A member of the RNA family "Glycine riboswitch aptamer" from Dorea formicigenerans, 115 nucleotides long. NCBI's taxonomy places the organism under Bacteria, Bacillati, Bacillota, Lachnospirales, Dorea formicigenerans.
RNA sequence: UGAUCUUUCUUAAGAGAGAGUCUUUACUAAAGAAGACCGCCGAAGAGGCAAGCCAAGGUAUGUUGGUGGACAUACCAGGGGUGAAACUUUCAGGCAAAAGGACUGAGAAAGGGAC
Numbered sequence: 001u002g003a004u005c006u007u008u009c010u011u012a013a014g015a016g017a018g019a020g021u022c023u024u025u026a027c028u029a030a031a032g033a034a035g036a037c038c039g040c041c042g043a044a045g046a047g048g049c050a051a052g053c054c055a056a057g058g059u060a061u062g063u064u065g066g067u068g069g070a071c072a073u074a075c076c077a078g079g080g081g082u083g084a085a086a087c088u089u090u091c092a093g094g095c096a097a098a099a100g101g102a103c104u105g106a107g108a109a110a111g112g113g114a115c
Base pairs, nucleotide, nucleotide: 006110007109008108009107010106011105012104020037021036022035023034039095040094041093042091043090046089047088048087052082053081